[Rfam]
RNA: Selenocysteine transfer RNA
Organism: Thelohanellus kitauei
RNA sequence: GCCUGGAUGACCAUCGUUGGUGCGGUGUGCAGACUUCAAAUCUGUAGCUGGGUAGUUCCAGAGAGGUUCGAUUCCUCCUUUCGGGC
Number, nucleotide and partner (000 for none) at each position: 001g086002c085003c084004u083005g082006g081007a080008u000009g078010a000011c000012c027013a026014u025015c024016g023017u022018u000019g000020g000021u000022g017023c016024g015025g014026u013027g012028u046029g045030c044031a043032g042033a041034c000035u000036u000037c000038a000039a000040a000041u033042c032043u031044g030045u029046a028047g000048c061049u060050g059051g058052g057053u000054a000055g000056u000057u052058c051059c050060a049061g048062a000063g077064a076065g075066g074067u000068u000069c000070g000071a000072u000073u000074c066075c065076u064077c063078c009079u000080u007081u006082c005083g004084g003085g002086c001